[Rfam]
RNA: Fluoride riboswitch aptamer (crcB RNA motif)
Organism: Nocardioides kongjuensis
RNA sequence: GACCCCGAUGGCGAUGGGGCUCGCCGACAACCGCAGCACUGCUGCUGACAGUCCCUACCUCUCC
Dot-bracket structure: .........[[[[..((((((]]]].......((((.....))))....)))))).........
Numbered sequence: 001g002a003c004c005c006c007g008a009u010g011g012c013g014a015u016g017g018g019g020c021u022c023g024c025c026g027a028c029a030a031c032c033g034c035a036g037c038a039c040u041g042c043u044g045c046u047g048a049c050a051g052u053c054c055c056u057a058c059c060u061c062u063c064c
Stems, first nucleotide, its partner, number of pairs: 010025004016055006033045004